A member of the RNA family "RNase MRP" from Lodderomyces parapsilosis, 991 nucleotides long. The family is grouped with related families in Rfam's "RNaseP clan". NCBI's taxonomy places the organism under Eukaryota, Opisthokonta, Ascomycota, Saccharomycotina, Lodderomyces. A search with the family's covariance model found it, with a score of 76 bits. Its family is annotated with rRNA processing, ribonuclease MRP complex and ribonuclease MRP activity in the Gene Ontology. By type it is a ribozyme.
RNA sequence: UCCAUAAACAAAGAAUUGUCAUCGAAGCUUACAAAAGGACAUGUUUUUUCAUGUCAUACGCUUAAUUCACUAGCGUAUUUGCUUCGGGGAAAGUCUCCUGUCACAGCAGCGGAAACGCGAUAGAAUAUCAUCAAUUCUAUUAGAUGUCUUCCUUAGAUUUCCAACAUUGGGCCCGAAUUCAGGUCUUUAUCAGUGCUGGAGAAUUGUGACUCACAAGUAUCCCCUGAUUAGACGAACCUCUCGGAGGGCAUGAAUGCACACCAAUCCCACCAUGACAGUAUGGCCGUGACAAGGCUGCGCGACAAGGUUGCGCGCGAUGUGCGGGGGGUAUGACCCCUGCCAUCCACAACAAUGGUUGAUUUCUACUGGAAAUUUUUUUUACUGGAUACGUGUGGGUGGAGGUAUAGAGCAAUUCGGUGGGUGCUCCAAGAAUGGUUUGCUUUCAGUUCGGUUUAAGUAUCGGUCGGUCAUUGGUUGAUCCUUGUUGUGAGUCGAGGCUCUGUCGAUGUUUAUGGUUGUGUUACUAGCUCGUACGGGCCGUGUGCAUCCUCGGGUGCACGAUUGUCUGUCCCCCCGGUUGGAUCGGGUGGUCAAGCUCUGGUACAUGCCUAAAGCUAUCUGUCAGACCAUGUUCUUACUGUCAAGGAGUUAGCCACACUGAAUCGAUUCUGCCGGUUUCAACUGUUUGCGACCUGUGGUGUCGCCUGCGCUAGGUCUUGUCUCAAUCUCUGAAUCCCCGCAGUUAAUUGCUUACGGAGCAAAGAAAAGGAUUAGCGUUUAAGUGCAGUGAACAUUGUUUGAAUAGAUACCGGUGUCCGUUGGGUCUUGGAUGAUGUUUAGAGGUUCCCAGUUUGGGUAUUUAAUUUCCCAGCUGGAUGUUGUGCCCGUUUCGGGUAUUACCAUUUUGACAAUGGGACUUUGUGUCCUGGACCAUAGUCAUGACGAUUGAUCAAUUUCGAUCAACCCAAUGGAGCUUACUCUUGUUUUAUGG
Numbered sequence: 001u002c003c004a005u006a007a008a009c010a011a012a013g014a015a016u017u018g019u020c021a022u023c024g025a026a027g028c029u030u031a032c033a034a035a036a037g038g039a040c041a042u043g044u045u046u047u048u049u050c051a052u053g054u055c056a057u058a059c060g061c062u063u064a065a066u067u068c069a070c071u072a073g074c075g076u077a078u079u080u081g082c083u084u085c086g087g088g089g090a091a092a093g094u095c096u097c098c099u100g101u102c103a104c105a106g107c108a109g110c111g112g113a114a115a116c117g118c119g120a121u122a123g124a125a126u127a128u129c130a131u132c133a134a135u136u137c138u139a140u141u142a143g144a145u146g147u148c149u150u151c152c153u154u155a156g157a158u159u160u161c162c163a164a165c166a167u168u169g170g171g172c173c174c175g176a177a178u179u180c181a182g183g184u185c186u187u188u189a190u191c192a193g194u195g196c197u198g199g200a201g202a203a204u205u206g207u208g209a210c211u212c213a214c215a216a217g218u219a220u221c222c223c224c225u226g227a228u229u230a231g232a233c234g235a236a237c238c239u240c241u242c243g244g245a246g247g248g249c250a251u252g253a254a255u256g257c258a259c260a261c262c263a264a265u266c267c268c269a270c271c272a273u274g275a276c277a278g279u280a281u282g283g284c285c286g287u288g289a290c291a292a293g294g295c296u297g298c299g300c301g302a303c304a305a306g307g308u309u310g311c312g313c314g315c316g317a318u319g320u321g322c323g324g325g326g327g328g329u330a331u332g333a334c335c336c337c338u339g340c341c342a343u344c345c346a347c348a349a350c351a352a353u354g355g356u357u358g359a360u361u362u363c364u365a366c367u368g369g370a371a372a373u374u375u376u377u378u379u380u381a382c383u384g385g386a387u388a389c390g391u392g393u394g395g396g397u398g399g400a401g402g403u404a405u406a407g408a409g410c411a412a413u414u415c416g417g418u419g420g421g422u423g424c425u426c427c428a429a430g431a432a433u434g435g436u437u438u439g440c441u442u443u444c445a446g447u448u449c450g451g452u453u454u455a456a457g458u459a460u461c462g463g464u465c466g467g468u469c470a471u472u473g474g475u476u477g478a479u480c481c482u483u484g485u486u487g488u489g490a491g492u493c494g495a496g497g498c499u500c501u502g503u504c505g506a507u508g509u510u511u512a513u514g515g516u517u518g519u520g521u522u523a524c525u526a527g528c529u530c531g532u533a534c535g536g537g538c539c540g541u542g543u544g545c546a547u548c549c550u551c552g553g554g555u556g557c558a559c560g561a562u563u564g565u566c567u568g569u570c571c572c573c574c575c576g577g578u579u580g581g582a583u584c585g586g587g588u589g590g591u592c593a594a595g596c597u598c599u600g601g602u603a604c605a606u607g608c609c610u611a612a613a614g615c616u617a618u619c620u621g622u623c624a625g626a627c628c629a630u631g632u633u634c635u636u637a638c639u640g641u642c643a644a645g646g647a648g649u650u651a652g653c654c655a656c657a658c659u660g661a662a663u664c665g666a667u668u669c670u671g672c673c674g675g676u677u678u679c680a681a682c683u684g685u686u687u688g689c690g691a692c693c694u695g696u697g698g699u700g701u702c703g704c705c706u707g708c709g710c711u712a713g714g715u716c717u718u719g720u721c722u723c724a725a726u727c728u729c730u731g732a733a734u735c736c737c738c739g740c741a742g743u744u745a746a747u748u749g750c751u752u753a754c755g756g757a758g759c760a761a762a763g764a765a766a767a768g769g770a771u772u773a774g775c776g777u778u779u780a781a782g783u784g785c786a787g788u789g790a791a792c793a794u795u796g797u798u799u800g801a802a803u804a805g806a807u808a809c810c811g812g813u814g815u816c817c818g819u820u821g822g823g824u825c826u827u828g829g830a831u832g833a834u835g836u837u838u839a840g841a842g843g844u845u846c847c848c849a850g851u852u853u854g855g856g857u858a859u860u861u862a863a864u865u866u867c868c869c870a871g872c873u874g875g876a877u878g879u880u881g882u883g884c885c886c887g888u889u890u891c892g893g894g895u896a897u898u899a900c901c902a903u904u905u906u907g908a909c910a911a912u913g914g915g916a917c918u919u920u921g922u923g924u925c926c927u928g929g930a931c932c933a934u935a936g937u938c939a940u941g942a943c944g945a946u947u948g949a950u951c952a953a954u955u956u957c958g959a960u961c962a963a964c965c966c967a968a969u970g971g972a973g974c975u976u977a978c979u980c981u982u983g984u985u986u987u988a989u990g991g
Base pairs, nucleotide, nucleotide: 002991003990004989005988006987007986008985009983010982011981014947015946016945017944018943019942022087023086024085025084026083027082028081038055039054040053041052042051043050091976092975093974095973096972097971098970109118110117111116120140121139122138123137124136125135884894885893886892887891949960950959951958